[Rfam]
RNA sequence: CCGUGCUAGGUGGGGAGGUAGCGGUGCCCUGUACUCGCAAUCCGCUAUAGCGAGACUGAAUUCCCAUCUGAGGUAUACAAUCAUAAAGUCUGCCAUAAGGAAUUGGUGUUGACGUUUGGGUCCUGCGCAACGAAGACCCGUGAACCCUGUCAGGUCCGGAAGGAAGCAGCAGUAAGCGGUAUUCUUUCGUGUGCCGCAGGGAAGCCUGGACUGAGCCAUGAACUUGUGUAACGUUUAGGAUUGUAUCAUCGACGAUGGGUGCACGG
Numbered sequence: 001c002c003g004u005g006c007u008a009g010g011u012g013g014g015g016a017g018g019u020a021g022c023g024g025u026g027c028c029c030u031g032u033a034c035u036c037g038c039a040a041u042c043c044g045c046u047a048u049a050g051c052g053a054g055a056c057u058g059a060a061u062u063c064c065c066a067u068c069u070g071a072g073g074u075a076u077a078c079a080a081u082c083a084u085a086a087a088g089u090c091u092g093c094c095a096u097a098a099g100g101a102a103u104u105g106g107u108g109u110u111g112a113c114g115u116u117u118g119g120g121u122c123c124u125g126c127g128c129a130a131c132g133a134a135g136a137c138c139c140g141u142g143a144a145c146c147c148u149g150u151c152a153g154g155u156c157c158g159g160a161a162g163g164a165a166g167c168a169g170c171a172g173u174a175a176g177c178g179g180u181a182u183u184c185u186u187u188c189g190u191g192u193g194c195c196g197c198a199g200g201g202a203a204g205c206c207u208g209g210a211c212u213g214a215g216c217c218a219u220g221a222a223c224u225u226g227u228g229u230a231a232c233g234u235u236u237a238g239g240a241u242u243g244u245a246u247c248a249u250c251g252a253c254g255a256u257g258g259g260u261g262c263a264c265g266g
Stems, first nucleotide, its partner, number of pairs: 001266006009057003012030004017025001019023001034054005063259006072250003078243005084237004091230002095227005103220001105217003114211008122200006128191002131189005138179004147172004155164003
RNA: Bacterial large signal recognition particle RNA